Annotation:
Flavo-1 RNA: an 80-nucleotide sequence from Flavobacterium sp. A45.
RNA sequence: CCCUAGCCCCGAUAGCAGUGGAAAUCCUUUUUAUUUUUCCUUUAAAAAUAAAAAGAUUGCAACGAAUAGCGGGAAAUAGC
Numbered sequence: 001c002c003c004u005a006g007c008c009c010c011g012a013u014a015g016c017a018g019u020g021g022a023a024a025u026c027c028u029u030u031u032u033a034u035u036u037u038u039c040c041u042u043u044a045a046a047a048a049u050a051a052a053a054a055g056a057u058u059g060c061a062a063c064g065a066a067u068a069g070c071g072g073g074a075a076a077u078a079g080c
Stems, first nucleotide, its partner, number of pairs: 009072003013068002018063002023058004029053010